[Rfam]
RNA sequence: UGCCUGCGAUGUGACUGGCGAGAUCGGUGGGUGACCACGAGGGAGCAUCGCUUUUUGGGCCGCUCGCCUGGGCAUGUGUC
Numbered sequence: 001u002g003c004c005u006g007c008g009a010u011g012u013g014a015c016u017g018g019c020g021a022g023a024u025c026g027g028u029g030g031g032u033g034a035c036c037a038c039g040a041g042g043g044a045g046c047a048u049c050g051c052u053u054u055u056u057g058g059g060c061c062g063c064u065c066g067c068c069u070g071g072g073c074a075u076g077u078g079u080c
Base pairs, nucleotide, nucleotide: 006051007050008049009048010047011046012045015042016041017068018067019066020065021064027038028037029036030035057075059073060072061071

Rfam assigns this 80-nucleotide sequence from Devosia oryzisoli to the family "ZMP/ZTP riboswitch aptamer (pfl RNA motif)". It scores 55 bits against the family's covariance model.